[Rfam]
RNA sequence: AAAGCGUUAUGAUGGUGGAAAGUAAUUUCCUAGUCUAGCUUGAAUGCGAAAUUUAUUUCGU
Numbered sequence: 001a002a003a004g005c006g007u008u009a010u011g012a013u014g015g016u017g018g019a020a021a022g023u024a025a026u027u028u029c030c031u032a033g034u035c036u037a038g039c040u041u042g043a044a045u046g047c048g049a050a051a052u053u054u055a056u057u058u059c060g061u
Stems, first nucleotide, its partner, number of pairs: 002041004011035003017030005046061005

The record is a 61-nucleotide RNA sequence from Paucilactobacillus wasatchensis, which matches "L17 ribosomal protein downstream element" in Rfam.
The match comes from Rfam's covariance-model search (43 bits).